The family of this 285-nucleotide sequence from Prolemur simus is "7SK RNA". Rfam's curators write: 7SK was discovered as an abundant small nuclear RNA in the mid-70s but a possible function has only recently been suggested. Two independent studies have found that 7SK RNA binds the CDK9/cyclin T complex (known as elongation factor P-TEFb). P-TEFb activates transcription by phosphorylating the C-terminal domain of RNA polymerase II. This process is negatively regulated by the 7SK RNP. The secondary structure of 7SK RNA shown here was proposed by Wasserman and Steitz on the basis of chemical modification and enzymatic cleavage experiments. This family contains a number of annotated pseudogenes and 7SK derived repeats. The threshold is artificially high to minimise the pseudogene count. It is annotated as a non-coding RNA gene. Clan: 7SK clan. It scores 268 bits against the family's covariance model.

RNA sequence: GGAUGUGAGGGCGAUUUGGCUGCGACAUCUGUCACCCCAUUGAUCGCCAGGGUUGAUUCGGCUGAUCUGGCUGGCUAGGCAGGUGUCCCCUUCCUCCCUCACUGCUCCAUGUGCGUCCCUCCCGAAGCUGCACGCUCGGUCAAAGAGGACAACCUUCCCCGAUAGAGGAGGACCGUUCUUCUGUCAAGGGUAUACGAGUAGCUGCACUCCCCUGCUAGAACCUCCAAACAAGCUCUCAAGAACACUGGGCUCAAAGAGGAUAUGGAAACUGAGAGAUUUUGAUUU
Numbered sequence: 001g002g003a004u005g006u007g008a009g010g011g012c013g014a015u016u017u018g019g020c021u022g023c024g025a026c027a028u029c030u031g032u033c034a035c036c037c038c039a040u041u042g043a044u045c046g047c048c049a050g051g052g053u054u055g056a057u058u059c060g061g062c063u064g065a066u067c068u069g070g071c072u073g074g075c076u077a078g079g080c081a082g083g084u085g086u087c088c089c090c091u092u093c094c095u096c097c098c099u100c101a102c103u104g105c106u107c108c109a110u111g112u113g114c115g116u117c118c119c120u121c122c123c124g125a126a127g128c129u130g131c132a133c134g135c136u137c138g139g140u141c142a143a144a145g146a147g148g149a150c151a152a153c154c155u156u157c158c159c160c161g162a163u164a165g166a167g168g169a170g171g172a173c174c175g176u177u178c179u180u181c182u183g184u185c186a187a188g189g190g191u192a193u194a195c196g197a198g199u200a201g202c203u204g205c206a207c208u209c210c211c212c213u214g215c216u217a218g219a220a221c222c223u224c225c226a227a228a229c230a231a232g233c234u235c236u237c238a239a240g241a242a243c244a245c246u247g248g249g250c251u252c253a254a255a256g257a258g259g260a261u262a263u264g265g266a267a268a269c270u271g272a273g274a275g276a277u278u279u280u281g282a283u284u285u
Stems, first nucleotide, its partner, number of pairs: 001108003005102007013093002018090002024087010035074002037070003042067004046062003116171002118168004122139004127135002140162002147158003201269001203267001208262001211259003224249002232246001
Dot-bracket structure: (((.(((((((.((...((....((((((((((.(((((..(((((((...........))).)))))))..))...)))))))))).)).))..)))))))...))).......((((((((((.((.....))))))((.....(((......)))..))..)))).)).............................(.(....(..(((..........((......(.............).)).......)))..)....).)................